RNA: Rhizobiales sRNA Atu_C8
Nucleotides: 121
Base pairs, nucleotide, nucleotide: 009026029117030116032114033082034081035080036079037078038077039076040075041074042073045061046060047059048058049057050056063070064069087107090106091105092104093103094102095101096100
Number, partner (000 for none) and nucleotide at each position: 001000g002000a003000a004000a005000a006000u007000g008000g009026c010000a011000a012000c013000g014000g015000c016000u017000c018000u019000u020000a021000u022000c023000g024000u025000g026009g027000u028000g029117g030116g031000a032114a033082a034081g035080c036079g037078c038077a039076u040075g041074g042073g043000c044000a045061g046060g047059a048058u049057g050056g051000u052000g053000u054000a055000a056050c057049c058048a059047u060046c061045c062000g063070g064069c065000g066000a067000c068000a069064g070063c071000c072000a073042c074041c075040c076039a077038u078037g079036c080035g081034c082033u083000a084000g085000a086000u087107g088000a089000c090106a091105g092104g093103c094102u095101c096100c097000u098000c099000c100096g101095g102094g103093g104092c105091c106090u107087u108000u109000u110000u111000u112000u113000g114032u115000g116030c117029c118000c119000g120000a121000a